[Rfam]
A member of the RNA family "Small nucleolar RNA SNORA74" from Myiagra hebetior, 179 nucleotides long. The family is grouped with related families in Rfam's "SNORA74 clan". Rfam 15.1 lists 1,348 matches to the family in 628 species. Rfam links the family to the GO terms RNA processing and nucleolus.
RNA sequence: UCCAGUGGUAGUCAGCUGUCCAGAGCAAUACUGUGCCUGUGAUAGUGUUACACUGCUGGGAGAUAAAGAUCAGUCAUUUCUUCUGGCUGCUGUUGCCAAGAAGAAGUGGCACUGUGCUUCCCUGAGAGUGCACUAAAGGUUCUCUUGCCCUCUUUAGUGCUAGUCUGGAAGCCUACACA
Numbered sequence: 001u002c003c004a005g006u007g008g009u010a011g012u013c014a015g016c017u018g019u020c021c022a023g024a025g026c027a028a029u030a031c032u033g034u035g036c037c038u039g040u041g042a043u044a045g046u047g048u049u050a051c052a053c054u055g056c057u058g059g060g061a062g063a064u065a066a067a068g069a070u071c072a073g074u075c076a077u078u079u080c081u082u083c084u085g086g087c088u089g090c091u092g093u094u095g096c097c098a099a100g101a102a103g104a105a106g107u108g109g110c111a112c113u114g115u116g117c118u119u120c121c122c123u124g125a126g127a128g129u130g131c132a133c134u135a136a137a138g139g140u141u142c143u144c145u146u147g148c149c150c151u152c153u154u155u156a157g158u159g160c161u162a163g164u165c166u167g168g169a170a171g172c173c174u175a176c177a178c179a
Base pairs, nucleotide, nucleotide: 001060002059003058004057005056006055007054008053009052011051012050015046016045017044018043019042020041021039022038023037068112073110074109075108076107077106078105079104080103081102083100084099085097086096087095114174116172117171118170119169120168121167130160131159132158134156135155136154137153138152139151
On this family, see Ganot et al., Genes Dev 1997: "The family of box ACA small nucleolar RNAs is defined by an evolutionarily conserved secondary structure and ubiquitous sequence elements essential for RNA accumulation". By type it is an H/ACA-box small nucleolar RNA. The match comes from Rfam's covariance-model search (96 bits). Rfam's curators write: U19 belongs to the H/ACA class of snoRNAs. snoRNAs bind a number of proteins (including dyskerin, Gar1p and Nop10p in the case of the H/ACA class) to form snoRNP complexes. This class are thought to guide the sites of modification of uridines to pseudouridines by forming direct base pairing interactions with substrate RNAs.